[Rfam]
RNA sequence: GGGCUGGCUUUAGCCCAGAGGUUCCUUCGAGUCUGGCUUCCCAACCGCCCAGGCCGCGCCGAUUGGUCUGCGGGCGCUCUCCAGUCCUUAA
Dot-bracket structure: .((((((.....((((.(.((.....(((..............................))).....)).))))).....)))))).....
Background:
A member of the RNA family "Vault RNA" from Cavia porcellus, 91 nucleotides long. Taxonomically the source falls in Cavia (Eukaryota, Metazoa, Deuterostomia, Rodentia). About the family: This family of RNAs are found as part of the enigmatic vault ribonucleoprotein complex. A search with the family's covariance model found it, with a score of 46 bits. By type it is a non-coding RNA gene.